[Rfam]
RNA sequence: GGGCGCAGGAUCGGGAGAAUCCGGCGUGGGCCAGCCCUGCGACGGUGCCGAAGGAGCAACCGCCCCGGUAAACUCUCAGGCGCAAGGGACCGUCUUGCUACG
Numbered sequence: 001g002g003g004c005g006c007a008g009g010a011u012c013g014g015g016a017g018a019a020u021c022c023g024g025c026g027u028g029g030g031c032c033a034g035c036c037c038u039g040c041g042a043c044g045g046u047g048c049c050g051a052a053g054g055a056g057c058a059a060c061c062g063c064c065c066c067g068g069u070a071a072a073c074u075c076u077c078a079g080g081c082g083c084a085a086g087g088g089a090c091c092g093u094c095u096u097g098c099u100a101c102g
Stems, first nucleotide, its partner, number of pairs: 006097005012092003021045003047081003050077002054075003060068002
The family of this 102-nucleotide RNA sequence from Neotabrizicola shimadae is "Glycine riboswitch aptamer". The base pairs follow the family's consensus structure. NCBI's taxonomy places the organism under Bacteria, Pseudomonadati, Rhodobacterales, Paracoccaceae, Neotabrizicola. About the family: This family represents the bacterial glycine riboswitch.